[Rfam]
RNA sequence: AACGCUCUAACGGGGUGCCUGAAUUCCGCACGGAAUGACAGGCUGAGAGGCUGAAAAUGCCAACCCGCGGAACCUGAUCCGGUUAGCACCGGCGGAGGGAUUAGACGUUGCCAUCAU
Numbered sequence: 001a002a003c004g005c006u007c008u009a010a011c012g013g014g015g016u017g018c019c020u021g022a023a024u025u026c027c028g029c030a031c032g033g034a035a036u037g038a039c040a041g042g043c044u045g046a047g048a049g050g051c052u053g054a055a056a057a058u059g060c061c062a063a064c065c066c067g068c069g070g071a072a073c074c075u076g077a078u079c080c081g082g083u084u085a086g087c088a089c090c091g092g093c094g095g096a097g098g099g100a101u102u103a104g105a106c107g108u109u110g111c112c113a114u115c116a117u
Stems, first nucleotide, its partner, number of pairs: 006105005011067004017043005050060002073098003079092004
RNA: TPP riboswitch aptamer (THI element)
Organism: Gellertiella hungarica